The record is a 133-nucleotide RNA from Tupaia belangeri, which matches "Small nucleolar RNA U109" in Rfam. Rfam links the family to the GO terms RNA processing and nucleolus. The sequence is in the family's curated seed alignment.

RNA sequence: UUGCAUGUGGAAACGUCUGUUCUGCAUUCUUUUGGAGCAGGAAUACAUCCAUCACAUGCUACAUUGAGAAGGAGUUCUCAGGGCUGCCGACCUUACAGUAGAGGUUGAGUAGUAGUAUAUUUCUCCUACAUAA
Numbered sequence: 001u002u003g004c005a006u007g008u009g010g011a012a013a014c015g016u017c018u019g020u021u022c023u024g025c026a027u028u029c030u031u032u033u034g035g036a037g038c039a040g041g042a043a044u045a046c047a048u049c050c051a052u053c054a055c056a057u058g059c060u061a062c063a064u065u066g067a068g069a070a071g072g073a074g075u076u077c078u079c080a081g082g083g084c085u086g087c088c089g090a091c092c093u094u095a096c097a098g099u100a101g102a103g104g105u106u107g108a109g110u111a112g113u114a115g116u117a118u119a120u121u122u123c124u125c126c127u128a129c130a131u132a133a
Base pairs, nucleotide, nucleotide: 003059004058005057006056007055008054016041017040018039019038020037021036022035023034071126072125073124074123083113084112087109088107089106090105091104092103093102094101
Dot-bracket structure: ..((((((.......((((((((..........))))))))............))))))...........((((........((..((((((((......))))))).)..)).........)))).......